[Rfam]
RNA: Small nucleolar RNA SNORA13
RNA sequence: UGCCUUUGUGUUGCCCAUUCAUUCCUGAACAGAAUGAAUGUGGUGUCAAAAAAGGCAAACAGGAAUUCUUGCUCAAACUGAAUGAGAAGAUGGUUAUUUACCUUUCUCCUCUCCGUUUUUGCAAGGACAAAA
Numbered sequence: 001u002g003c004c005u006u007u008g009u010g011u012u013g014c015c016c017a018u019u020c021a022u023u024c025c026u027g028a029a030c031a032g033a034a035u036g037a038a039u040g041u042g043g044u045g046u047c048a049a050a051a052a053a054g055g056c057a058a059a060c061a062g063g064a065a066u067u068c069u070u071g072c073u074c075a076a077a078c079u080g081a082a083u084g085a086g087a088a089g090a091u092g093g094u095u096a097u098u099u100a101c102c103u104u105u106c107u108c109c110u111c112u113c114c115g116u117u118u119u120u121g122c123a124a125g126g127a128c129a130a131a132a
Stems, first nucleotide, its partner, number of pairs: 002056006009048002012045004016040008068125004074121004084113004088107002092102002